RNA sequence: AACUUAUCAAGAGAGGUGGAGGGAAUGGCCCUGUGAAACCCGGCAACCGGUACAAUUUGUACUAAGGUGCUAAUUCCUGCAGUUGAAUCUGCGAGAUAAGGA
Numbered sequence: 001a002a003c004u005u006a007u008c009a010a011g012a013g014a015g016g017u018g019g020a021g022g023g024a025a026u027g028g029c030c031c032u033g034u035g036a037a038a039c040c041c042g043g044c045a046a047c048c049g050g051u052a053c054a055a056u057u058u059g060u061a062c063u064a065a066g067g068u069g070c071u072a073a074u075u076c077c078u079g080c081a082g083u084u085g086a087a088u089c090u091g092c093g094a095g096a097u098a099a100g101g102a
Stems, first nucleotide, its partner, number of pairs: 003100006013041001015040003021031003027077002042071004047067002049063004075094001080091003
RNA: SAM riboswitch aptamer (S box leader)
Organism: Clostridium thermopalmarium